[Rfam]
Notes:
This 52-nucleotide RNA from Balaenoptera musculus belongs to the Rfam family "mir-1302 microRNA precursor family". Pairs were carried over by alignment from the consensus structure, which was predicted with WAR. NCBI's taxonomy places the organism under Eukaryota, Metazoa, Bilateria, Euteleostomi, Balaenoptera. A reference for the family is Morin et al. (2008), "Application of massively parallel sequencing to microRNA profiling and discovery in human embryonic stem cells", Genome Res. Rfam links the family to the GO terms RISC complex and miRNA-mediated post-transcriptional gene silencing.
RNA sequence: UUUUUAGUAUGUGUAUGUCCCAUGCAAAAUCUGGGACAUACAUACACUAAAA
Numbered sequence: 001u002u003u004u005u006a007g008u009a010u011g012u013g014u015a016u017g018u019c020c021c022a023u024g025c026a027a028a029a030u031c032u033g034g035g036a037c038a039u040a041c042a043u044a045c046a047c048u049a050a051a052a
Stems, first nucleotide, its partner, number of pairs: 006048003010044003014040003018036004